Background:
A member of the RNA family "Plant small nucleolar RNA R71" from Carpinus fangiana, 108 nucleotides long. Pairs were carried over by alignment from the consensus structure, which was predicted with PFOLD. Its family is annotated with nucleolus and RNA processing in the Gene Ontology. The source organism's lineage runs through Eukaryota, Embryophyta, Gunneridae, rosids and Carpinus. Rfam classes the family as a C/D-box small nucleolar RNA.
[Rfam]
RNA sequence: UAACCAUGAGGGGGGCAUUUGAUGAGCAAAUCCUUGAACCUCGCCCAACACUCAGAGAAUUUUUCGUCCUCGUCCUGAGUAAAGGAACUGAUCUCCUUUUUUGCCUCA
Numbered sequence: 001u002a003a004c005c006a007u008g009a010g011g012g013g014g015g016c017a018u019u020u021g022a023u024g025a026g027c028a029a030a031u032c033c034u035u036g037a038a039c040c041u042c043g044c045c046c047a048a049c050a051c052u053c054a055g056a057g058a059a060u061u062u063u064u065c066g067u068c069c070u071c072g073u074c075c076u077g078a079g080u081a082a083a084g085g086a087a088c089u090g091a092u093c094u095c096c097u098u099u100u101u102u103g104c105c106u107c108a
Stems, first nucleotide, its partner, number of pairs: 001108001003106001005103002057074002